[Rfam]
RNA sequence: CCCUUAUUAAGAGUGGCGGAGAUACAUAGGAUCUAUGAAGCCCGGCAACCCCUUGCAGACCAAUACCGGUGAAUUACGGUGAUGGGACAGGCAGAGGAAGGUGCCAACCUGAGCGGAUUUUCGGAAGAGUG
Numbered sequence: 001c002c003c004u005u006a007u008u009a010a011g012a013g014u015g016g017c018g019g020a021g022a023u024a025c026a027u028a029g030g031a032u033c034u035a036u037g038a039a040g041c042c043c044g045g046c047a048a049c050c051c052c053u054u055g056c057a058g059a060c061c062a063a064u065a066c067c068g069g070u071g072a073a074u075u076a077c078g079g080u081g082a083u084g085g086g087a088c089a090g091g092c093a094g095a096g097g098a099a100g101g102u103g104c105c106a107a108c109c110u111g112a113g114c115g116g117a118u119u120u121u122c123g124g125a126a127g128a129g130u131g
Stems, first nucleotide, its partner, number of pairs: 005131004013043001015042003021033003027113001030110001044105004049101002051097004109127001114124001116122002
Shown here is a 131-nucleotide RNA sequence from [Bacteroides] pectinophilus, a member of the family "SAM riboswitch aptamer (S box leader)". Pairs were carried over by alignment from the consensus structure, which is taken from published work. NCBI's taxonomy places the organism under Bacteria, Bacillati, Bacillota, Eubacteriales, [Bacteroides] pectinophilus.